[Rfam]
Annotation: Shown here is an 85-nucleotide sequence from Isachenkonia alkalipeptolytica, a member of the family "c-di-GMP-I riboswitch aptamer". It scores 75 bits against the family's covariance model. About the family: GEMM was predicted in a large-scale screen for bacterial structured RNA regulatory elements. Genes associated with GEMM are involved in a diverse array of functions, including chemotaxis regulation, signal transduction, secretion and chitin.
RNA sequence: AAAGUUUAUUGGCAAAAUCACUGAAAAGUGAUGACGCAAAGCUACGAGUCUACGUUCUAUUGGAUAUGACAGUCGGGUUGCUGUA
Numbered sequence: 001a002a003a004g005u006u007u008a009u010u011g012g013c014a015a016a017a018u019c020a021c022u023g024a025a026a027a028g029u030g031a032u033g034a035c036g037c038a039a040a041g042c043u044a045c046g047a048g049u050c051u052a053c054g055u056u057c058u059a060u061u062g063g064a065u066a067u068g069a070c071a072g073u074c075g076g077g078u079u080g081c082u083g084u085a
Stems, first nucleotide, its partner, number of pairs: 012037002017032006040079004045075003048070003055064003